[Rfam]
RNA sequence: UUCACCGUGGUUCGAAAACUCCCACGAAAAAAAACUAAGGAGAA
Numbered sequence: 001u002u003c004a005c006c007g008u009g010g011u012u013c014g015a016a017a018a019c020u021c022c023c024a025c026g027a028a029a030a031a032a033a034a035c036u037a038a039g040g041a042g043a044a
Stems, first nucleotide, its partner, number of pairs: 006026005016036001
A member of the RNA family "PreQ1 (pre queuosine) riboswitch aptamer" from Lysinibacillus halotolerans, 44 nucleotides long. It scores 54 bits against the family's covariance model. About the family: This family is a bacterial riboswitch that binds to the metabolite preQ1, an intermediate in the biosynthesis of the modified nucleoside queuosine from GTP. One example of this riboswitch is located in the leader of the Bacillus subtilis ykvJKLM (queCDEF) operon which encodes four genes necessary for queuosine production. PreQ1 binding to the riboswitch aptamer is thought to induce premature transcription termination within the leader to down-regulate expression of these genes. NCBI's taxonomy places the organism under Bacteria, Bacillati, Bacilli, Caryophanales, Lysinibacillus. A reference for the family is Jenkins et al. (2011), "Comparison of a preQ1 riboswitch aptamer in metabolite-bound and free states with implications for gene regulation", J Biol Chem.